[Rfam]
RNA sequence: AAUCGCCCCUGCGGGAGCUCGAUAGUGGCGGGCUGAGAGGGGUUGCAAACCCGACCGCAGAACCUGAUCCGGGUAAUGCCGGCGGAGGGAAACGCAACGUAGCCGUC
Number, nucleotide and partner (000 for none) at each position: 001a000002a000003u000004c000005g000006c000007c094008c000009c000010u091011g058012c057013g056014g055015g000016a000017g033018c032019u031020c030021g029022a000023u000024a000025g000026u000027g000028g000029c021030g020031g019032g018033c017034u000035g000036a000037g000038a000039g000040g052041g051042g050043u049044u048045g000046c000047a000048a044049a043050c042051c041052c040053g000054a000055c014056c013057g012058c011059a000060g000061a000062a000063c088064c087065u086066g000067a000068u000069c082070c081071g080072g079073g000074u000075a000076a000077u000078g000079c072080c071081g070082g069083c000084g000085g000086a065087g064088g063089g000090a000091a010092a000093c000094g007095c000096a000097a000098c000099g000100u000101a000102g000103c000104c000105g000106u000107c000

Shown here is a 107-nucleotide RNA from Desulforhopalus singaporensis, a member of the family "TPP riboswitch aptamer (THI element)". The source organism's lineage runs through Bacteria, Pseudomonadati, Desulfobulbia, Desulfocapsaceae and Desulforhopalus. The match comes from Rfam's covariance-model search (59 bits).